The family of this 83-nucleotide sequence from Actinacidiphila rubida is "Fluoride riboswitch aptamer (crcB RNA motif)". The family's consensus secondary structure is taken from published work. The match comes from Rfam's covariance-model search (40 bits).

RNA sequence: UCACGAACUGGCGAUGGACCCCGCCAGGGACGGCGCGAUGCCGCCCCGAACCGCCCCUCCGGGCUGAUGGCUCCUGACCGAGU
Number, nucleotide and partner (000 for none) at each position: 001u000002c000003a000004c000005g000006a000007a000008c000009u000010g025011g024012c023013g022014a000015u000016g074017g073018a072019c000020c000021c000022c013023g012024c011025c010026a000027g000028g000029g000030a000031c000032g000033g000034c000035g000036c000037g000038a000039u000040g000041c000042c000043g000044c000045c000046c000047c000048g000049a000050a000051c000052c000053g064054c063055c062056c061057c000058u000059c000060c000061g056062g055063g054064c053065u000066g000067a000068u000069g000070g000071c000072u018073c017074c016075u000076g000077a000078c000079c000080g000081a000082g000083u000